Rfam assigns this 76-nucleotide sequence from Gopherus agassizii to the family "Mammalian CPEB3 ribozyme". Pairs were carried over by alignment from the consensus structure, which is taken from published work. NCBI's taxonomy places the organism under Eukaryota, Gnathostomata, Amniota, Testudinata, Gopherus. A search with the family's covariance model found it, with a score of 47 bits. About the family: The mammalian CPEB3 ribozyme is a self cleaving RNA located in the second intron of the CPEB3 gene which belongs to a family of genes regulating messenger RNA polyadenylation.
[Rfam]
RNA sequence: UGAGAAGGAUAGGGACCAUAGCAGGAACAUUCACUUCAUGGGCCCUGUCAGAGUCUCUGUAUCUGUGAAUGCUGCU
Numbered sequence: 001u002g003a004g005a006a007g008g009a010u011a012g013g014g015a016c017c018a019u020a021g022c023a024g025g026a027a028c029a030u031u032c033a034c035u036u037c038a039u040g041g042g043c044c045c046u047g048u049c050a051g052a053g054u055c056u057c058u059g060u061a062u063c064u065g066u067g068a069a070u071g072c073u074g075c076u
Base pairs, nucleotide, nucleotide: 012045013044014043016041017040020076021075022074023073024072026070027039049065050064051063052062055059